[Rfam]
RNA sequence: UCUCGUUUAAACGAUGCAUUCCCUACCUCUAAUGCAUCUUUGUAACUCUUUAGUUACGCCAAAGGAUUAAAUUCACCGAAAUAAA
Numbered sequence: 001u002c003u004c005g006u007u008u009a010a011a012c013g014a015u016g017c018a019u020u021c022c023c024u025a026c027c028u029c030u031a032a033u034g035c036a037u038c039u040u041u042g043u044a045a046c047u048c049u050u051u052a053g054u055u056a057c058g059c060c061a062a063a064g065g066a067u068u069a070a071a072u073u074c075a076c077c078g079a080a081a082u083a084a085a
Stems, first nucleotide, its partner, number of pairs: 035064001040061001041058007
This 85-nucleotide RNA from Enterococcus asini belongs to the Rfam family "BsrC". The family's consensus secondary structure was predicted with CMfinder. Rfam classes the family as a small RNA. About the family: The 301 nucleotide sequence from Kouji Nakamura has been trimmed to a highly conserved ~85 nucleotide long core to form this family. The literature on the family includes a 2008 paper in Gene by Saito et al., "Novel small RNA-encoding genes in the intergenic regions of Bacillus subtilis". Taxonomically the source falls in Enterococcus asini (Bacteria, Bacillota, Lactobacillales, Enterococcus).